About this RNA: c-di-GMP-II-GAG riboswitch aptamer: an 86-nucleotide sequence from Egicoccus halophilus.
[Rfam]
RNA sequence: CGGUAGGUGUGGGGCACUGAUCCAACCGGCGGUAGUUGGUCGCCGAGCCGGUUGGGGAGCCAGGGGCGAAACCGACACACCUUCCC
Numbered sequence: 001c002g003g004u005a006g007g008u009g010u011g012g013g014g015c016a017c018u019g020a021u022c023c024a025a026c027c028g029g030c031g032g033u034a035g036u037u038g039g040u041c042g043c044c045g046a047g048c049c050g051g052u053u054g055g056g057g058a059g060c061c062a063g064g065g066g067c068g069a070a071a072c073c074g075a076c077a078c079a080c081c082u083u084c085c086c
Stems, first nucleotide, its partner, number of pairs: 002085002005082007013061003022055008038073002040069005

Clan: c-di-GMP_II riboswitch clan. A search with the family's covariance model found it, with a score of 60 bits. The source organism's lineage runs through Bacteria, Actinomycetota, Nitriliruptoria, Egicoccaceae and Egicoccus.